This 130-nucleotide sequence from Brucella gallinifaecis belongs to the Rfam family "Alphaproteobacterial sRNA ar35". The pairing is the family consensus, mapped onto this sequence. The organism belongs to Brucella, within Bacteria. The match comes from Rfam's covariance-model search (47 bits).
RNA sequence: AUAAUCUUGAAAUACACAGCUAUUAAAUCUGUCUGUGUAUCGGGGAUUCAUUCGGUAAUGUGACCACGGAUGUACUGGCACAUAACCGCAAUGAAAGCGGAAGGUCGGGUUUAGCCCGGCCUUUUUCGUU
Numbered sequence: 001a002u003a004a005u006c007u008u009g010a011a012a013u014a015c016a017c018a019g020c021u022a023u024u025a026a027a028u029c030u031g032u033c034u035g036u037g038u039a040u041c042g043g044g045g046a047u048u049c050a051u052u053c054g055g056u057a058a059u060g061u062g063a064c065c066a067c068g069g070a071u072g073u074a075c076u077g078g079c080a081c082a083u084a085a086c087c088g089c090a091a092u093g094a095a096a097g098c099g100g101a102a103g104g105u106c107g108g109g110u111u112u113a114g115c116c117c118g119g120c121c122u123u124u125u126u127c128g129u130u
Base pairs, nucleotide, nucleotide: 003048004047005046006045007043008042009041014038015037016036017035018034051094052093055086056085058083061080062079064078065077066076095129097127099125100124101123102122103121104120105119106118107117108116110114